[Rfam]
RNA sequence: CCGCUGGUCCGGGCCCCUCUGGCAAGUUCCCCGGCUAACUUGCGAUGUCGGACCGUUUCC
Numbered sequence: 001c002c003g004c005u006g007g008u009c010c011g012g013g014c015c016c017c018u019c020u021g022g023c024a025a026g027u028u029c030c031c032c033g034g035c036u037a038a039c040u041u042g043c044g045a046u047g048u049c050g051g052a053c054c055g056u057u058u059c060c
Stems, first nucleotide, its partner, number of pairs: 006054007022043007

Shown here is a 60-nucleotide RNA from Phyllobacterium sp. YR531, a member of the family "terC RNA". Rfam 15.1 lists 1,112 matches to the family in 772 species. The match comes from Rfam's covariance-model search (59 bits). The family's RNA type in Rfam is cis-regulatory element. The family's consensus secondary structure is taken from published work.